A member of the RNA family "c-di-AMP riboswitch aptamer (ydaO/yuaA leader)" from Metabacillus indicus, 141 nucleotides long.
Gene Ontology terms of the family: regulation of gene expression and cyclic-di-AMP binding.
The pairing is the family consensus, mapped onto this sequence.
The match comes from Rfam's covariance-model search (85 bits).
The literature on the family includes a 2004 paper in Proc Natl Acad Sci U S A by Barrick et al., "New RNA motifs suggest an expanded scope for riboswitches in bacterial genetic control".
Lineage of the source: Bacteria > Bacillati > Bacilli > Bacillaceae > Metabacillus.

RNA sequence: UUUCAUAACAAGCUUAAUCUAUUCAGAGCGGGGGAAUCAUGCAUUUGGUAAGGCUCUUACCUUGGGGUGAAUCCGUAAAUGGAAGGGAACUCUCAAUCCCGAAUCCGACAGUUAACCUCGUCUGCUUUAUUGGGAGAAAGA
Numbered sequence: 001u002u003u004c005a006u007a008a009c010a011a012g013c014u015u016a017a018u019c020u021a022u023u024c025a026g027a028g029c030g031g032g033g034g035a036a037u038c039a040u041g042c043a044u045u046u047g048g049u050a051a052g053g054c055u056c057u058u059a060c061c062u063u064g065g066g067g068u069g070a071a072u073c074c075g076u077a078a079a080u081g082g083a084a085g086g087g088a089a090c091u092c093u094c095a096a097u098c099c100c101g102a103a104u105c106c107g108a109c110a111g112u113u114a115a116c117c118u119c120g121u122c123u124g125c126u127u128u129a130u131u132g133g134g135a136g137a138a139a140g141a
Stems, first nucleotide, its partner, number of pairs: 011126003018027003028121006038064002065106003073082003085100004